[Rfam]
Rfam assigns this 389-nucleotide RNA sequence from Hungateiclostridiaceae bacterium KB18 to the family "Bacterial RNase P class A". The family's RNA type in Rfam is ribozyme. The family's consensus secondary structure is taken from published work. It scores 254 bits against the family's covariance model. The organism belongs to Oscillospiraceae, within Bacteria.
RNA sequence: UGAGCAAGCCGGGCAGUUGCGGGCGCAGGGUGAAAACCCGCGUCUGAGGAAAGUCCGAGCUUCAUAGGGCAAGGAUAACGGCUAACCGCCGCCGGGGGCGACCCCAGGGAAAGUGCAACAGAGAUAUACCGCCUGAUUUGGGGCGCAAGCCACAAUAUCAUGGUAAGGGUGGAAAGGCGAGGUAAGAGCUCACCGGCGCGGGGGAGACCCCGCGGCCCUGUAAACCCUAUCCGAAGCAACACCGUGGAGGAACAGGAGACUUUAGCGUCAGCUAAAUGUCUUCAGCGCGGCCCGCGCGUUCCGUGGAGGUGGCGCGAGCCCGUCGGCAACGGCGGGCCAAGAUAGAUGACUGCUCAAGACAGAACUCGGCUUACAGACUUGGUCACAUC
Numbered sequence: 001u002g003a004g005c006a007a008g009c010c011g012g013g014c015a016g017u018u019g020c021g022g023g024c025g026c027a028g029g030g031u032g033a034a035a036a037c038c039c040g041c042g043u044c045u046g047a048g049g050a051a052a053g054u055c056c057g058a059g060c061u062u063c064a065u066a067g068g069g070c071a072a073g074g075a076u077a078a079c080g081g082c083u084a085a086c087c088g089c090c091g092c093c094g095g096g097g098g099c100g101a102c103c104c105c106a107g108g109g110a111a112a113g114u115g116c117a118a119c120a121g122a123g124a125u126a127u128a129c130c131g132c133c134u135g136a137u138u139u140g141g142g143g144c145g146c147a148a149g150c151c152a153c154a155a156u157a158u159c160a161u162g163g164u165a166a167g168g169g170u171g172g173a174a175a176g177g178c179g180a181g182g183u184a185a186g187a188g189c190u191c192a193c194c195g196g197c198g199c200g201g202g203g204g205a206g207a208c209c210c211c212g213c214g215g216c217c218c219u220g221u222a223a224a225c226c227c228u229a230u231c232c233g234a235a236g237c238a239a240c241a242c243c244g245u246g247g248a249g250g251a252a253c254a255g256g257a258g259a260c261u262u263u264a265g266c267g268u269c270a271g272c273u274a275a276a277u278g279u280c281u282u283c284a285g286c287g288c289g290g291c292c293c294g295c296g297c298g299u300u301c302c303g304u305g306g307a308g309g310u311g312g313c314g315c316g317a318g319c320c321c322g323u324c325g326g327c328a329a330c331g332g333c334g335g336g337c338c339a340a341g342a343u344a345g346a347u348g349a350c351u352g353c354u355c356a357a358g359a360c361a362g363a364a365c366u367c368g369g370c371u372u373a374c375a376g377a378c379u380u381g382g383u384c385a386c387a388u389c
Base pairs, nucleotide, nucleotide: 001385002384003383005381006380007379008378010376011374012354013353014352015351016350017349018348020046021045022044023043024042025041026040028038051372052371053370055369056368057367058366059365060236061235062234063233068293069292073232074231075230076229077228079091080090081089082088093107094105095104096103097102108227109226113225114224115221116220117219129168130167131164132163133162134160135159136158137157139155176194177193179191180190181189196216197214198213199212200211201210202209203208240311241310242309243308249302250301251300252299285297286296287295288294318337319336320335321334322333323332324331325330